[Rfam]
RNA: mir-9242 microRNA precursor family
Organism: Myotis myotis
RNA sequence: GGCCUCCCUCUGUGGGGCAAUUGAUCUGGGUGCCCUGCGAUCAAUCGCCCCGCAGAGGGUGGCC
Dot-bracket structure: ((((.(((((((((((((.(((((((..((....))..))))))).))))))))))))).))))